Record summary
Mammalian CPEB3 ribozyme: a 77-nucleotide sequence from Alligator sinensis. Lineage of the source: Eukaryota > Opisthokonta > Bilateria > Deuterostomia > Alligator. About the family: The mammalian CPEB3 ribozyme is a self cleaving RNA located in the second intron of the CPEB3 gene which belongs to a family of genes regulating messenger RNA polyadenylation. The match comes from Rfam's covariance-model search (42 bits).
RNA sequence: UCAAGGCAGCAGAAGUUCAUAGCAGAAGUGCUCACAGCACGGCCCUGUCAGAUUCCAACAAAUCUACAAAUUCUGCU
Numbered sequence: 001u002c003a004a005g006g007c008a009g010c011a012g013a014a015g016u017u018c019a020u021a022g023c024a025g026a027a028g029u030g031c032u033c034a035c036a037g038c039a040c041g042g043c044c045c046u047g048u049c050a051g052a053u054u055c056c057a058a059c060a061a062a063u064c065u066a067c068a069a070a071u072u073c074u075g076c077u
Stems, first nucleotide, its partner, number of pairs: 015043001017042002021077007028040003050065005